[Rfam]
RNA sequence: ACCAGAAGUUGUCAGCUGUCCAGCACUUAUUUAUGGCUGUGAUAGUGUUACACUGCUGGGAGAAAAAGACACUGCCAUUUCUUGCUUUGUGUCAAUGUCAUUGUUCUGGUGGCAUGUCACUGGCACCAGGCAGUGUCCUGCUUCCUUGAGAGUGUGCCAAAAGCAUUAGUAGUUUGGUGCUAGUCUGGAAGCAUACAUG
Numbered sequence: 001a002c003c004a005g006a007a008g009u010u011g012u013c014a015g016c017u018g019u020c021c022a023g024c025a026c027u028u029a030u031u032u033a034u035g036g037c038u039g040u041g042a043u044a045g046u047g048u049u050a051c052a053c054u055g056c057u058g059g060g061a062g063a064a065a066a067a068g069a070c071a072c073u074g075c076c077a078u079u080u081c082u083u084g085c086u087u088u089g090u091g092u093c094a095a096u097g098u099c100a101u102u103g104u105u106c107u108g109g110u111g112g113c114a115u116g117u118c119a120c121u122g123g124c125a126c127c128a129g130g131c132a133g134u135g136u137c138c139u140g141c142u143u144c145c146u147u148g149a150g151a152g153u154g155u156g157c158c159a160a161a162a163g164c165a166u167u168a169g170u171a172g173u174u175u176g177g178u179g180c181u182a183g184u185c186u187g188g189a190a191g192c193a194u195a196c197a198u199g
Stems, first nucleotide, its partner, number of pairs: 002059004007054003011051002015046006021039004069136008083125004089120003093116001099111004139193007154180003158176004
RNA: Small nucleolar RNA SNORA74
Organism: Hymenochirus boettgeri